RNA: Alphaproteobacterial ar14
Organism: Phyllobacterium sp. YR620
RNA sequence: CGACUUGCGUCCGGAGCACUCCUCCUCCCAAGCUUCGGACGUAUAAAGACCGGCACUCCUCCUCCCAGCCGGUCUUUACAAAUAGCACCCACCGCUCCUCCCGCGGUGGGUGUUGUUU
Numbered sequence: 001c002g003a004c005u006u007g008c009g010u011c012c013g014g015a016g017c018a019c020u021c022c023u024c025c026u027c028c029c030a031a032g033c034u035u036c037g038g039a040c041g042u043a044u045a046a047a048g049a050c051c052g053g054c055a056c057u058c059c060u061c062c063u064c065c066c067a068g069c070c071g072g073u074c075u076u077u078a079c080a081a082a083u084a085g086c087a088c089c090c091a092c093c094g095c096u097c098c099u100c101c102c103g104c105g106g107u108g109g110g111u112g113u114u115g116u117u118u
Stems, first nucleotide, its partner, number of pairs: 007042003011038007045077010085113011